A member of the RNA family "Eukaryotic large subunit ribosomal RNA" from Pediculus humanus, 577 nucleotides of a longer RNA. Clan: LSU clan. The family has 88 seed sequences and 107,465 matches in Rfam 15.1.
RNA sequence: GAAGACCCUGUUGAGCUUGACUCUAGUCUGGCACUGUAAGGAGACGUGAGAGGUGUAGCAUAAGUGGGAGGCGGUCGGGUCUUCGGGUCCGGUCGCCGAAAGUGAAAUACCACUACUUUCAUUGUUUCCUUACUUAUUCGAUGAAGCGGAGGACGUGCGUCGGCUCUUUAAUCGCCGGCGCCACGGUUUUCUGGCGUUAAGCGCUCAGGGAAGGAACCGGGGGUCGGGAUCGCGCGUGCGGAGAUCGAGCGGAUUUCGCAUCUCGCGCGAUUUCUCGCGCUCGAUUUCGAUUUUGCGAUUUCCUCUCGGGGUUUUUGAAACCCGCCCGGCGUGAUCCGAUUCGAAGACACUGCCAGGUGGGGAGUUUGACUGGGGCGGUACAUCUGUCAAAGAAUAACGCAGGUGUCCUAAGGCCAGCUCAGCGUGGACAGAAACCUCGCGUGGAGCAAAAGGGCAAAAGCUGGCUUGAUCCCGACGUUCAGUACGCGUUGGGACUGCGAAAGCAGGGCCUAUCGAUCCUUUUGGCGUCUAGAGUUUAGAGCAAGAGGUGUCAGAAAAGUUACCACAGGGAUAACUG
Numbered sequence: 001g002a003a004g005a006c007c008c009u010g011u012u013g014a015g016c017u018u019g020a021c022u023c024u025a026g027u028c029u030g031g032c033a034c035u036g037u038a039a040g041g042a043g044a045c046g047u048g049a050g051a052g053g054u055g056u057a058g059c060a061u062a063a064g065u066g067g068g069a070g071g072c073g074g075u076c077g078g079g080u081c082u083u084c085g086g087g088u089c090c091g092g093u094c095g096c097c098g099a100a101a102g103u104g105a106a107a108u109a110c111c112a113c114u115a116c117u118u119u120c121a122u123u124g125u126u127u128c129c130u131u132a133c134u135u136a137u138u139c140g141a142u143g144a145a146g147c148g149g150a151g152g153a154c155g156u157g158c159g160u161c162g163g164c165u166c167u168u169u170a171a172u173c174g175c176c177g178g179c180g181c182c183a184c185g186g187u188u189u190u191c192u193g194g195c196g197u198u199a200a201g202c203g204c205u206c207a208g209g210g211a212a213g214g215a216a217c218c219g220g221g222g223g224u225c226g227g228g229a230u231c232g233c234g235c236g237u238g239c240g241g242a243g244a245u246c247g248a249g250c251g252g253a254u255u256u257c258g259c260a261u262c263u264c265g266c267g268c269g270a271u272u273u274c275u276c277g278c279g280c281u282c283g284a285u286u287u288c289g290a291u292u293u294u295g296c297g298a299u300u301u302c303c304u305c306u307c308g309g310g311g312u313u314u315u316u317g318a319a320a321c322c323c324g325c326c327c328g329g330c331g332u333g334a335u336c337c338g339a340u341u342c343g344a345a346g347a348c349a350c351u352g353c354c355a356g357g358u359g360g361g362g363a364g365u366u367u368g369a370c371u372g373g374g375g376c377g378g379u380a381c382a383u384c385u386g387u388c389a390a391a392g393a394a395u396a397a398c399g400c401a402g403g404u405g406u407c408c409u410a411a412g413g414c415c416a417g418c419u420c421a422g423c424g425u426g427g428a429c430a431g432a433a434a435c436c437u438c439g440c441g442u443g444g445a446g447c448a449a450a451a452g453g454g455c456a457a458a459a460g461c462u463g464g465c466u467u468g469a470u471c472c473c474g475a476c477g478u479u480c481a482g483u484a485c486g487c488g489u490u491g492g493g494a495c496u497g498c499g500a501a502a503g504c505a506g507g508g509c510c511u512a513u514c515g516a517u518c519c520u521u522u523u524g525g526c527g528u529c530u531a532g533a534g535u536u537u538a539g540a541g542c543a544a545g546a547g548g549u550g551u552c553a554g555a556a557a558a559g560u561u562a563c564c565a566c567a568g569g570g571a572u573a574a575c576u577g
Stems, first nucleotide, its partner, number of pairs: 007569004012565002014561005020365004027357007036133010046122007063114005070097011137345005147338004155184003201332005368381001369379003382404006407508002413465006419445002422440003426436002446455002470494009496505003519547006528540003
Dot-bracket structure: ......((((.(((((((.((((...(((((((..(((((((((((((((((..........(((((..(((((((((((......)))))))))))............))))).))))))).))))))))))...(((((.....((((....(((........................)))................(((((..........................................................................................................................)))))..))))..))))).....)))))))....))))..((((.....))).)((((((...........))))))..((....((((((((.(((.((.......)).)))...))((......))....))))))....(((((((((.......))))))))).(((....))).))..........((((((...(((.......))).)))))).........)))))..))))))........
Description: It scores 2654 bits against the family's covariance model.